Rfam assigns this 61-nucleotide RNA sequence to the family "L31-Gammaproteobacteria ribosomal protein leader". On this family, see Eckert and Weinberg, BMC Microbiol 2020: "Discovery of 20 novel ribosomal leader candidates in bacteria and archaea". It is annotated as a cis-regulatory leader.
RNA sequence: CGUAUGGUGCUUAGCAAUUAAUAGGAAUUGACUAAGUGGCGAUACGGCCUAAUACAGAGGU
Numbered sequence: 001c002g003u004a005u006g007g008u009g010c011u012u013a014g015c016a017a018u019u020a021a022u023a024g025g026a027a028u029u030g031a032c033u034a035a036g037u038g039g040c041g042a043u044a045c046g047g048c049c050u051a052a053u054a055c056a057g058a059g060g061u
Stems, first nucleotide, its partner, number of pairs: 001046005007040002011035004015030005